This 67-nucleotide sequence from Ornithorhynchus anatinus belongs to the Rfam family "mir-19 microRNA precursor family". A search with the family's covariance model found it, with a score of 61 bits. For this family Rfam cites "Identification of novel genes coding for small expressed RNAs" (Lagos-Quintana et al., Science, 2001).
RNA sequence: UUCUGUGGUUAGUUUUACAGGUUUGCAUCCAGUUGUUGUGCAAAUCUAUGCAAAACUGACUGUGGCA
Numbered sequence: 001u002u003c004u005g006u007g008g009u010u011a012g013u014u015u016u017a018c019a020g021g022u023u024u025g026c027a028u029c030c031a032g033u034u035g036u037u038g039u040g041c042a043a044a045u046c047u048a049u050g051c052a053a054a055a056c057u058g059a060c061u062g063u064g065g066c067a
Stems, first nucleotide, its partner, number of pairs: 003065014018050002020047002022044007031037002